[Rfam]
RNA: c-di-AMP riboswitch aptamer (ydaO/yuaA leader)
RNA sequence: GCGCGGACGCCGCCGAGUCGCCCAUCCGGGCGAGCCGGGGACCCACCGCAGUACUGGGGUGAAUCCUGCUCCGGACACCAGUCCGGCGCGGGUAGGGCACUCUUCCCGCCCGAAUCCGUCAGCUAACUCGGUAGGCGGCCGACGGAAGAAAC
Numbered sequence: 001g002c003g004c005g006g007a008c009g010c011c012g013c014c015g016a017g018u019c020g021c022c023c024a025u026c027c028g029g030g031c032g033a034g035c036c037g038g039g040g041a042c043c044c045a046c047c048g049c050a051g052u053a054c055u056g057g058g059g060u061g062a063a064u065c066c067u068g069c070u071c072c073g074g075a076c077a078c079c080a081g082u083c084c085g086g087c088g089c090g091g092g093u094a095g096g097g098c099a100c101u102c103u104u105c106c107c108g109c110c111c112g113a114a115u116c117c118g119u120c121a122g123c124u125a126a127c128u129c130g131g132u133a134g135g136c137g138g139c140c141g142a143c144g145g146a147a148g149a150a151a152c
Base pairs, nucleotide, nucleotide: 011137012136013135014134018033019032020031021030022029034132035131036130037129038128039127044056045055057117058116059115065092066091067090068089095111096110097109098108